[Rfam]
RNA sequence: AUCCUGGUGCAAGGGUUUUACACGUGUCAGUGAGGAGCCAUCCGAGACCGUGUUUUUGCUAGUUGAAAACUACCUAGUUGACCGCUCCAAUUGGCCUUAGGGUCGGUUGGGAAUUUUUGAACACUUAAAGAAA
Numbered sequence: 001a002u003c004c005u006g007g008u009g010c011a012a013g014g015g016u017u018u019u020a021c022a023c024g025u026g027u028c029a030g031u032g033a034g035g036a037g038c039c040a041u042c043c044g045a046g047a048c049c050g051u052g053u054u055u056u057u058g059c060u061a062g063u064u065g066a067a068a069a070c071u072a073c074c075u076a077g078u079u080g081a082c083c084g085c086u087c088c089a090a091u092u093g094g095c096c097u098u099a100g101g102g103u104c105g106g107u108u109g110g111g112a113a114u115u116u117u118u119g120a121a122c123a124c125u126u127a128a129a130g131a132a133a
Stems, first nucleotide, its partner, number of pairs: 020053005026048003034043003086111011126133001
The family of this 133-nucleotide RNA sequence from Aspergillus nidulans is "U4 spliceosomal RNA".
Taxonomically the source falls in Aspergillus nidulans (Eukaryota, leotiomyceta, Aspergillaceae, Aspergillus subgen. Nidulantes).
Rfam's curators write: U4 small nuclear RNA (U4 snRNA) is a component of the major U2-dependent spliceosome.
The family has 177 seed sequences and 32,178 matches in Rfam 15.1.
On this family, see Thomas et al., Nucleic Acids Res 1990: "The spliceosomal snRNAs of Caenorhabditis elegans".
It is annotated as a spliceosomal small nuclear RNA.